[Rfam]
RNA sequence: UGCCUUUUGUGUUACCCAUUCUUUCCACUUCCUCUAAAGAAUGUGGUGUCAGCAAAGGCAUACAGUAAACUCUUGGUUUAGCCUUUACAAAGUGGUUUCUGUGUAUCACCUUGUCUAAAGCGCAUAUCAAGUACAACA
Numbered sequence: 001u002g003c004c005u006u007u008u009g010u011g012u013u014a015c016c017c018a019u020u021c022u023u024u025c026c027a028c029u030u031c032c033u034c035u036a037a038a039g040a041a042u043g044u045g046g047u048g049u050c051a052g053c054a055a056a057g058g059c060a061u062a063c064a065g066u067a068a069a070c071u072c073u074u075g076g077u078u079u080a081g082c083c084u085u086u087a088c089a090a091a092g093u094g095g096u097u098u099c100u101g102u103g104u105a106u107c108a109c110c111u112u113g114u115c116u117a118a119a120g121c122g123c124a125u126a127u128c129a130a131g132u133a134c135a136a137c138a
Stems, first nucleotide, its partner, number of pairs: 002059006010051002013048004017043008072131004076123002085118003089114001091111002095106002
RNA: Small nucleolar RNA SNORA13